[Rfam]
RNA sequence: UUUCUGGUAGACCACUAGCGAGGUAUAGAGUUCCUACGUGACUUUAUAUGGUAGGAACUUCAUACCGUGCUCUUGGAUCGGCCACA
Numbered sequence: 001u002u003u004c005u006g007g008u009a010g011a012c013c014a015c016u017a018g019c020g021a022g023g024u025a026u027a028g029a030g031u032u033c034c035u036a037c038g039u040g041a042c043u044u045u046a047u048a049u050g051g052u053a054g055g056a057a058c059u060u061c062a063u064a065c066c067g068u069g070c071u072c073u074u075g076g077a078u079c080g081g082c083c084a085c086a
Stems, first nucleotide, its partner, number of pairs: 012076003017071004022066005028060010
mir-276 microRNA precursor family: an 86-nucleotide RNA sequence from Ignelater luminosus.
A reference for the family is Li et al. (2009), "Direct sequencing and expression analysis of a large number of miRNAs in Aedes aegypti and a multi-species survey of novel mosquito miRNAs", BMC Genomics.
The family has 42 seed sequences and 200 matches in Rfam 15.1.
Rfam links the family to the GO terms RISC complex and miRNA-mediated post-transcriptional gene silencing.